[Rfam]
RNA sequence: UAAAAGAAAAGGCAAAUCAUUAGAAAUAAUGAGAUGCAAAACUAUAGGGACUAAGUUCAGUUGAAUAUGUCUGCCAGAAGCCGAG
Numbered sequence: 001u002a003a004a005a006g007a008a009a010a011g012g013c014a015a016a017u018c019a020u021u022a023g024a025a026a027u028a029a030u031g032a033g034a035u036g037c038a039a040a041a042c043u044a045u046a047g048g049g050a051c052u053a054a055g056u057u058c059a060g061u062u063g064a065a066u067a068u069g070u071c072u073g074c075c076a077g078a079a080g081c082c083g084a085g
Base pairs, nucleotide, nucleotide: 012037013036017032018031019030020029021028022027042077043076047075048074049071050070051069056065057064058063